[Rfam]
RNA sequence: AUUACCCAUCGUGAUGUGGUUAUUGUGAUCGCAAUGCUUUGAUUGCAUGGGGCAAUAUUUUAUUGCCCCUUUAUUUUA
Numbered sequence: 001a002u003u004a005c006c007c008a009u010c011g012u013g014a015u016g017u018g019g020u021u022a023u024u025g026u027g028a029u030c031g032c033a034a035u036g037c038u039u040u041g042a043u044u045g046c047a048u049g050g051g052g053c054a055a056u057a058u059u060u061u062a063u064u065g066c067c068c069c070u071u072u073a074u075u076u077u078a
Stems, first nucleotide, its partner, number of pairs: 025046007049069009
ABC transporter regulator: a 78-nucleotide RNA from Pseudescherichia vulneris.
Pairs were carried over by alignment from the consensus structure, which is taken from published work.
For this family Rfam cites "An atlas of Hfq-bound transcripts reveals 3' UTRs as a genomic reservoir of regulatory small RNAs" (Chao et al., EMBO J, 2012).
Rfam classes the family as a cis-regulatory element.
The source organism's lineage runs through Bacteria, Enterobacterales, Enterobacteriaceae, Pseudescherichia and Pseudescherichia vulneris.